The record is a 72-nucleotide part of an RNA from Candidatus Aciduliprofundum boonei, which matches "Archaeal large subunit ribosomal RNA" in Rfam.

RNA sequence: GAUGGGGCGAGAAAGGGUAGAAGUUCCGUAGCUGGAAUGGACCGUCGUCCCAUCGUCCGUGUUGAAGAACGG
Numbered sequence: 001g002a003u004g005g006g007g008c009g010a011g012a013a014a015g016g017g018u019a020g021a022a023g024u025u026c027c028g029u030a031g032c033u034g035g036a037a038u039g040g041a042c043c044g045u046c047g048u049c050c051c052a053u054c055g056u057c058c059g060u061g062u063u064g065a066a067g068a069a070c071g072g
Base pairs, nucleotide, nucleotide: 001054002053003052004051005050006049007048008047009046010045015043016042023038024037025036026035027034028032057072058071059070060069
Its family is annotated with ribosome and structural constituent of ribosome in the Gene Ontology. The base pairs follow the family's consensus structure, which is taken from published work.